[Rfam]
Small nucleolar RNA R160: an 81-nucleotide sequence. Its family is annotated with nucleolus and RNA processing in the Gene Ontology. Rfam's curators write: snoR160 is a C/D box small nucleolar RNA, which acts as a methylation guide for 25S ribosomal RNA in plants. snoR160 has been alternatively named snoZ270 in rice. The literature on the family includes a 2003 paper in Nucleic Acids Res by Chen et al., "The high diversity of snoRNAs in plants: identification and comparative study of 120 snoRNA genes from Oryza sativa". By type it is a C/D-box small nucleolar RNA. It is one of the family's seed sequences.
RNA sequence: AUCAAAAUGAGGAGGCUGUUUGUUCUGAAGUAUCUAAUGUGGAUACAUCCAUUCAUGGGUCUUCAAAGUUCUCUGAUUGCU
Numbered sequence: 001a002u003c004a005a006a007a008u009g010a011g012g013a014g015g016c017u018g019u020u021u022g023u024u025c026u027g028a029a030g031u032a033u034c035u036a037a038u039g040u041g042g043a044u045a046c047a048u049c050c051a052u053u054c055a056u057g058g059g060u061c062u063u064c065a066a067a068g069u070u071c072u073c074u075g076a077u078u079g080c081u
Stems, first nucleotide, its partner, number of pairs: 001081001003079003